This 58-nucleotide sequence from Cavenderia fasciculata belongs to the Rfam family "Class I RNA from Dictyostelium".
Rfam classes the family as a non-coding RNA gene.
The source organism's lineage runs through Eukaryota, Amoebozoa, Eumycetozoa, Dictyostelia and Cavenderia.
RNA sequence: GAUUCCCUUCCUACAAUCAAACAAAUUGUCCAAUUACAACAACAAACCUAGGGAUCUG
Numbered sequence: 001g002a003u004u005c006c007c008u009u010c011c012u013a014c015a016a017u018c019a020a021a022c023a024a025a026u027u028g029u030c031c032a033a034u035u036a037c038a039a040c041a042a043c044a045a046a047c048c049u050a051g052g053g054a055u056c057u058g
Base pairs, nucleotide, nucleotide: 001056002055003054004053005052006051